This 130-nucleotide RNA sequence from Cynoglossus semilaevis belongs to the Rfam family "U4atac minor spliceosomal RNA". A search with the family's covariance model found it, with a score of 90 bits. Its Rfam clan is "U4 clan". The family's consensus secondary structure is taken from published work. Its family is annotated with mRNA 5'-splice site recognition, pre-mRNA 5'-splice site binding and U4atac snRNP in the Gene Ontology. U4atac is an essential component of the minor U12-type spliceosome complex which is required for removal of the rarer class of eukaryotic introns (AT-AC, U12-type). On this family, see Lorkovic et al., RNA 2005: "Evolutionary conservation of minor U12-type spliceosome between plants and humans". The family's RNA type in Rfam is spliceosomal small nuclear RNA.

RNA sequence: ACCUUCUUUGUCAUGGGGUGACGUAGGAAGCUCAAUGAGCGUCUAGCGAGAGUUUCCUUGCUAACACCACAAUAUCAACACUUUAGCGUCACCUGGGCUUCGGCCCAGGCCCGGCGCAAUUUUUGGAACC
Numbered sequence: 001a002c003c004u005u006c007u008u009u010g011u012c013a014u015g016g017g018g019u020g021a022c023g024u025a026g027g028a029a030g031c032u033c034a035a036u037g038a039g040c041g042u043c044u045a046g047c048g049a050g051a052g053u054u055u056c057c058u059u060g061c062u063a064a065c066a067c068c069a070c071a072a073u074a075u076c077a078a079c080a081c082u083u084u085a086g087c088g089u090c091a092c093c094u095g096g097g098c099u100u101c102g103g104c105c106c107a108g109g110c111c112c113g114g115c116g117c118a119a120u121u122u123u124u125g126g127a128a129c130c
Base pairs, nucleotide, nucleotide: 006018007017008016009015023061024060025059026058027056028055029054030053031052032051033050039047040046086117087116088115089114090113093108094107095106096105097104098103